[Rfam]
RNA: abiF RNA
RNA sequence: CCCGCAAAGCCUCUUUUUAAUGCUUAAAUCGGCGGGU
Numbered sequence: 001c002c003c004g005c006a007a008a009g010c011c012u013c014u015u016u017u018u019a020a021u022g023c024u025u026a027a028a029u030c031g032g033c034g035g036g037u
Stems, first nucleotide, its partner, number of pairs: 001036005008024003
Dot-bracket structure: (((((..(((...........))).......))))).